[Rfam]
Record summary: U7 small nuclear RNA: a 62-nucleotide sequence from Rattus norvegicus.
RNA sequence: AGCUGUUACAGCUGUUUUAGAAUUUUUCUAGCAGCUUCUCUGACUUUGGUCAAAAAACCUAA
Numbered sequence: 001a002g003c004u005g006u007u008a009c010a011g012c013u014g015u016u017u018u019a020g021a022a023u024u025u026u027u028c029u030a031g032c033a034g035c036u037u038c039u040c041u042g043a044c045u046u047u048g049g050u051c052a053a054a055a056a057a058c059c060u061a062a
Base pairs, nucleotide, nucleotide: 034059036057037056039054041052042051043050044049

The source organism's lineage runs through Eukaryota, Theria, Eutheria, Muridae and Rattus. The match comes from Rfam's covariance-model search (40 bits).